[Rfam]
The record is a 129-nucleotide sequence from Jaculus jaculus, which matches "Small nucleolar RNA SNORA30/SNORA37 family" in Rfam. Rfam links the family to the GO terms RNA processing and nucleolus. From the family's description: The members of this family belong to the H/ACA class of snoRNAs that guide the sites of modification of uridines to pseudouridines. This family includes human ACA30 (SNORA30), ACA37 (SNORA37) and the mouse homolog MBI-26.

RNA sequence: AAAGCACUUUCACAGGUCCUCCCUUAGGCAGUGGGGGCAGGAUUUGGUAGCUGGUGCUGAAAGAAGUCCCUUGACUACAUCCUUACCCUGAUACUGUACCAGUGGCAGCUGUCAUUCAGGGGAACAAAA
Numbered sequence: 001a002a003a004g005c006a007c008u009u010u011c012a013c014a015g016g017u018c019c020u021c022c023c024u025u026a027g028g029c030a031g032u033g034g035g036g037g038c039a040g041g042a043u044u045u046g047g048u049a050g051c052u053g054g055u056g057c058u059g060a061a062a063g064a065a066g067u068c069c070c071u072u073g074a075c076u077a078c079a080u081c082c083u084u085a086c087c088c089u090g091a092u093a094c095u096g097u098a099c100c101a102g103u104g105g106c107a108g109c110u111g112u113c114a115u116u117c118a119g120g121g122g123a124a125c126a127a128a129a
Base pairs, nucleotide, nucleotide: 003058004057005056006055007054008053013046014045015044017042018041019040020039022036023035024034025033069122070121071119072118073117074116076114079112080111083108084107086105087104088102089101090100